[Rfam]
RNA sequence: UGAAACCUUGAUAUGACUGCAGGGCCUUUCAUAAGACCCAGUGUCCAAUUUUUGGGAACCCUUGCUGGAGCAAGGGUA
Numbered sequence: 001u002g003a004a005a006c007c008u009u010g011a012u013a014u015g016a017c018u019g020c021a022g023g024g025c026c027u028u029u030c031a032u033a034a035g036a037c038c039c040a041g042u043g044u045c046c047a048a049u050u051u052u053u054g055g056g057a058a059c060c061c062u063u064g065c066u067g068g069a070g071c072a073a074g075g076g077u078a
Stems, first nucleotide, its partner, number of pairs: 022039003026035003058077008
RNA: SmY spliceosomal RNA